[Rfam]
RNA: Glycine riboswitch aptamer
RNA sequence: GGUAAGGACUCUGGAGAGAAGCGCUUUCACGCUCGCCGAAGGGAUAACAAUCUCAGGCAAAGGGACAGAGGGGGCUCG
Numbered sequence: 001g002g003u004a005a006g007g008a009c010u011c012u013g014g015a016g017a018g019a020a021g022c023g024c025u026u027u028c029a030c031g032c033u034c035g036c037c038g039a040a041g042g043g044a045u046a047a048c049a050a051u052c053u054c055a056g057g058c059a060a061a062g063g064g065a066c067a068g069a070g071g072g073g074g075c076u077c078g
Base pairs, nucleotide, nucleotide: 009070010069011068012067013066020033021032022031023030035058036057037056038054039053042052043051